Small nucleolar RNA Z206: a 133-nucleotide sequence from Oryza sativa. The sequence is in the family's curated seed alignment. It is annotated as a C/D-box small nucleolar RNA. Taxonomically the source falls in Oryza sativa (Eukaryota, Euphyllophyta, Petrosaviidae, commelinids).

[Rfam]
RNA sequence: GCAGCCGGAUGAUGAGGUCAAGGUGAACGUGACGGUGCGCCGGUCGACGGCGCUGCUAGGCGGCACCGGUGCAGUAGUGCAAGAAGGUGGGCCUCAGGAGGUCGACGGGGUGAUGUGGUUUCGACCGGCGGCG
Numbered sequence: 001g002c003a004g005c006c007g008g009a010u011g012a013u014g015a016g017g018u019c020a021a022g023g024u025g026a027a028c029g030u031g032a033c034g035g036u037g038c039g040c041c042g043g044u045c046g047a048c049g050g051c052g053c054u055g056c057u058a059g060g061c062g063g064c065a066c067c068g069g070u071g072c073a074g075u076a077g078u079g080c081a082a083g084a085a086g087g088u089g090g091g092c093c094u095c096a097g098g099a100g101g102u103c104g105a106c107g108g109g110g111u112g113a114u115g116u117g118g119u120u121u122c123g124a125c126c127g128g129c130g131g132c133g
Stems, first nucleotide, its partner, number of pairs: 004129005